[Rfam]
RNA sequence: AAUUCUGUUGCACCCAGAUUUUUGAGGUGGAGAACGAGGAGACAUGAGGCACGAAGUGCCCAGACAAAAAGCGCUGUUGGACUCAUCCAACAGCGCUUUUUU
Dot-bracket structure: ..(((...(.(((((((....))).)))).))))......(...((.(((((...)))))))..)..((((((((((((((....))))))))))))))...
RNA: Burkholderia sRNA 1